[Rfam]
RNA: 6S / SsrS RNA
RNA sequence: UGCGGUCUGCACUUCUCGACAGGAACCACAAUCCCCGGGGCCAUACACGAUCUCAAGGGAACUGUCCCUGGCCGGACCCGUGGGUCCGGACAUACGGUGCCCACCUACCUAGUAGGUACCCGGGAUCGUAAAAAAUCCAUCGGUCGUUGUGGAUCGCGC
Numbered sequence: 001u002g003c004g005g006u007c008u009g010c011a012c013u014u015c016u017c018g019a020c021a022g023g024a025a026c027c028a029c030a031a032u033c034c035c036c037g038g039g040g041c042c043a044u045a046c047a048c049g050a051u052c053u054c055a056a057g058g059g060a061a062c063u064g065u066c067c068c069u070g071g072c073c074g075g076a077c078c079c080g081u082g083g084g085u086c087c088g089g090a091c092a093u094a095c096g097g098u099g100c101c102c103a104c105c106u107a108c109c110u111a112g113u114a115g116g117u118a119c120c121c122g123g124g125a126u127c128g129u130a131a132a133a134a135a136u137c138c139a140u141c142g143g144u145c146g147u148u149g150u151g152g153a154u155c156g157c158g159c
Base pairs, nucleotide, nucleotide: 002157003156004155005154006153007152008151009150010149011148012146015143017142018141019140032125033124034123035122037120038119040117041116042115057102058101059100061098062097063096064095065094072089073088074087075086076085